[Rfam]
RNA: raiA-hairpin RNA
RNA sequence: CGCCGAGUCGGGGGCUCCGGAGCUCUCCGGGGCCUAGUGCAGCAACGGA
Numbered sequence: 001c002g003c004c005g006a007g008u009c010g011g012g013g014g015c016u017c018c019g020g021a022g023c024u025c026u027c028c029g030g031g032g033c034c035u036a037g038u039g040c041a042g043c044a045a046c047g048g049a
Stems, first nucleotide, its partner, number of pairs: 013034008